[Rfam]
RNA sequence: GCCUUCGUAGCUCAGUGGUAGAGCACUUCCUUGGUAAGGAAGAGGUCGGCAGUUCAAUCCUGCUUGAAGGCU
Numbered sequence: 001g002c003c004u005u006c007g008u009a010g011c012u013c014a015g016u017g018g019u020a021g022a023g024c025a026c027u028u029c030c031u032u033g034g035u036a037a038g039g040a041a042g043a044g045g046u047c048g049g050c051a052g053u054u055c056a057a058u059c060c061u062g063c064u065u066g067a068a069g070g071c072u
Stems, first nucleotide, its partner, number of pairs: 001071007010024004026042005048064005